RNA sequence: UGGGCGGAUAGGAACCAGUUGACCCUUGUGGGUUACUUGGGCCGAAAACCGCCAACAUCAUAGCUUCACACUAAAGGUCGUAUGUGCUUCUCUUUGGAGCAUGUAUAUUACCAUUGUGAAUCACAUCC
Numbered sequence: 001u002g003g004g005c006g007g008a009u010a011g012g013a014a015c016c017a018g019u020u021g022a023c024c025c026u027u028g029u030g031g032g033u034u035a036c037u038u039g040g041g042c043c044g045a046a047a048a049c050c051g052c053c054a055a056c057a058u059c060a061u062a063g064c065u066u067c068a069c070a071c072u073a074a075a076g077g078u079c080g081u082a083u084g085u086g087c088u089u090c091u092c093u094u095u096g097g098a099g100c101a102u103g104u105a106u107a108u109u110a111c112c113a114u115u116g117u118g119a120a121u122c123a124c125a126u127c128c
Stems, first nucleotide, its partner, number of pairs: 003053005011043002015040004020035006065120006072113001076112003080106002083103005089098003

Rfam assigns this 128-nucleotide sequence from Nippostrongylus brasiliensis to the family "Nematode snoRNA ceN39". For this family Rfam cites "Systematic identification of non-coding RNA 2,2,7-trimethylguanosine cap structures in Caenorhabditis elegans" (Jia et al., BMC Mol Biol, 2007).